RNA sequence: ACUUGGUGCGACAGGCAACCUGUCGCACCAAGCAAGGUGCGACAGGUGCCCGUCGCACCAAAUCUUGGUGCGACAGGCGCCCAUCGCACCAAGCAAGGUGCGACAAGCGCCCGUCGCACCAAGAUUCGGGCGACAGGUUGCCUGUCGCACCCCCAU
Numbered sequence: 001a002c003u004u005g006g007u008g009c010g011a012c013a014g015g016c017a018a019c020c021u022g023u024c025g026c027a028c029c030a031a032g033c034a035a036g037g038u039g040c041g042a043c044a045g046g047u048g049c050c051c052g053u054c055g056c057a058c059c060a061a062a063u064c065u066u067g068g069u070g071c072g073a074c075a076g077g078c079g080c081c082c083a084u085c086g087c088a089c090c091a092a093g094c095a096a097g098g099u100g101c102g103a104c105a106a107g108c109g110c111c112c113g114u115c116g117c118a119c120c121a122a123g124a125u126u127c128g129g130g131c132g133a134c135a136g137g138u139u140g141c142c143u144g145u146c147g148c149a150c151c152c153c154c155a156u
Stems, first nucleotide, its partner, number of pairs: 005059008020045007067151007078132005097120005134144003

Background:
The record is a 156-nucleotide RNA sequence from Citrus unshiu, which matches "Glm Y RNA activator of glmS mRNA" in Rfam. Taxonomically the source falls in Citrus (Eukaryota, Euphyllophyta, malvids, Rutaceae). About the family: This family consists of a number of bacterial RNA genes of around 167 bases in length. The tke1 RNA gene is present in Escherichia coli, Shigella flexneri, Yersinia pestis and Salmonella species where it is found between the yfhK and purL genes. The function of this RNA is unknown. It is annotated as a small RNA.